[Rfam]
RNA sequence: UAGUAUCGGUGAAGAUGCCGGUUACCCGCAGUGGGACGAAAAGACCCCGUGCACCUUUACUAUAGCUUCGUAUUGACCCUGGGCAAGGGAUGUGUAGGAUAGCUGGGAGGAUUUGAAGAUGUGUCGCCAGGCAUGUUGGAUCCAUUGUUGAAAUACCAGCCUUCGUUUGUCCGGGGCCUAACCUCUAACGAGGGACAGUGCGUGGUGGGUAGUUUGACUGGGGUGGUCGCCUCCAAAAGAGUAACGGAGGCUUCCAAAGGUGUCCUCAGCACGCUUGGCAACCGUGCGUAGAGUGCAAUGGCACAAGGACGCUUGACUGUGAGACAUACAGGUCGAACAGGUACGAAAGUAGGGCAUAGUGAUCCGGUGGUUCCGUAUGGAAGGGCCAUCGCUCAAAGGAUAAAAGGUACGCCGGGGAUAACAGGCUGAUCUCCCCCAAGAGCUCACAUCGACGGGGGGGUUUGGCACCUCGAUGUCGGCUCGUCACAUCCUGGGGCUGGAGAAGGUCCCAAGGGUUGGGCUGUUCGCCCAUUAAAGUGGCACGCGAGCUGGGUUCAGAACGUCGUGAGACAGUUCGGUCUCUAUCUACUGCGGGCGUU
Numbered sequence: 001u002a003g004u005a006u007c008g009g010u011g012a013a014g015a016u017g018c019c020g021g022u023u024a025c026c027c028g029c030a031g032u033g034g035g036a037c038g039a040a041a042a043g044a045c046c047c048c049g050u051g052c053a054c055c056u057u058u059a060c061u062a063u064a065g066c067u068u069c070g071u072a073u074u075g076a077c078c079c080u081g082g083g084c085a086a087g088g089g090a091u092g093u094g095u096a097g098g099a100u101a102g103c104u105g106g107g108a109g110g111a112u113u114u115g116a117a118g119a120u121g122u123g124u125c126g127c128c129a130g131g132c133a134u135g136u137u138g139g140a141u142c143c144a145u146u147g148u149u150g151a152a153a154u155a156c157c158a159g160c161c162u163u164c165g166u167u168u169g170u171c172c173g174g175g176g177c178c179u180a181a182c183c184u185c186u187a188a189c190g191a192g193g194g195a196c197a198g199u200g201c202g203u204g205g206u207g208g209g210u211a212g213u214u215u216g217a218c219u220g221g222g223g224u225g226g227u228c229g230c231c232u233c234c235a236a237a238a239g240a241g242u243a244a245c246g247g248a249g250g251c252u253u254c255c256a257a258a259g260g261u262g263u264c265c266u267c268a269g270c271a272c273g274c275u276u277g278g279c280a281a282c283c284g285u286g287c288g289u290a291g292a293g294u295g296c297a298a299u300g301g302c303a304c305a306a307g308g309a310c311g312c313u314u315g316a317c318u319g320u321g322a323g324a325c326a327u328a329c330a331g332g333u334c335g336a337a338c339a340g341g342u343a344c345g346a347a348a349g350u351a352g353g354g355c356a357u358a359g360u361g362a363u364c365c366g367g368u369g370g371u372u373c374c375g376u377a378u379g380g381a382a383g384g385g386c387c388a389u390c391g392c393u394c395a396a397a398g399g400a401u402a403a404a405a406g407g408u409a410c411g412c413c414g415g416g417g418a419u420a421a422c423a424g425g426c427u428g429a430u431c432u433c434c435c436c437c438a439a440g441a442g443c444u445c446a447c448a449u450c451g452a453c454g455g456g457g458g459g460g461u462u463u464g465g466c467a468c469c470u471c472g473a474u475g476u477c478g479g480c481u482c483g484u485c486a487c488a489u490c491c492u493g494g495g496g497c498u499g500g501a502g503a504a505g506g507u508c509c510c511a512a513g514g515g516u517u518g519g520g521c522u523g524u525u526c527g528c529c530c531a532u533u534a535a536a537g538u539g540g541c542a543c544g545c546g547a548g549c550u551g552g553g554u555u556c557a558g559a560a561c562g563u564c565g566u567g568a569g570a571c572a573g574u575u576c577g578g579u580c581u582c583u584a585u586c587u588a589c590u591g592c593g594g595g596c597g598u599u
Base pairs, nucleotide, nucleotide: 005022006021007020008019009018025595026594027593028592029591030590031589032588034587035586036585038582039581046416047415048414049413051412052411053408054407055406056405057404059213060212061211062210066205067204069202070201071200072199075178077176078175079174080173081172082171083170084169085168086167087166089164090163092161102160103159104158105157106156109143110142111141118137119136120135121134122133123132124131125130182193183192184191216228217227218226219225229251230250231249232248233247234246252397254354255353260312261311262310263309264308265307266292267291269287270286271285272284273283293302294301317340318339319338320337323334324333325332342351343350344349365391366390367389368388369387370386371385373384374383425466426465427464429463430460431459432458433457434456435455436454440450441449477552478550479549480548481547482544483541484540485539486538487537490515491514493510494509495508496507497506498505517531518530519529520528521527558576559575560574561573562571563570564569
Rfam assigns this 599-nucleotide part of an RNA from Croceivirga radicis to the family "Bacterial large subunit ribosomal RNA".
Pairs were carried over by alignment from the consensus structure, which is taken from published work.
Rfam links the family to the GO terms structural constituent of ribosome and ribosome.